[Rfam]
Shown here is a 124-nucleotide RNA from Nelumbo nucifera, a member of the family "MIR408 microRNA precursor family".

RNA sequence: AGACAGAGAGAGAGAUAGGCAGGGAUAAGGCAGAGCAUGGGAUGGAGCAAUCAACAGAGGGGUGGAGCUGUUGUUGCUCUUCCCAUGCACUGCCUCUUCCCUGGCUCUCUCUUUCUCCCCUUCC
Numbered sequence: 001a002g003a004c005a006g007a008g009a010g011a012g013a014g015a016u017a018g019g020c021a022g023g024g025a026u027a028a029g030g031c032a033g034a035g036c037a038u039g040g041g042a043u044g045g046a047g048c049a050a051u052c053a054a055c056a057g058a059g060g061g062g063u064g065g066a067g068c069u070g071u072u073g074u075u076g077c078u079c080u081u082c083c084c085a086u087g088c089a090c091u092g093c094c095u096c097u098u099c100c101c102u103g104g105c106u107c108u109c110u111c112u113u114u115c116u117c118c119c120c121u122u123c124c
Stems, first nucleotide, its partner, number of pairs: 017106002020103006028095006035088005041083001045079002
NCBI's taxonomy places the organism under Eukaryota, Streptophytina, Proteales, Nelumbonaceae, Nelumbo. The base pairs follow the family's consensus structure, which was predicted with WAR.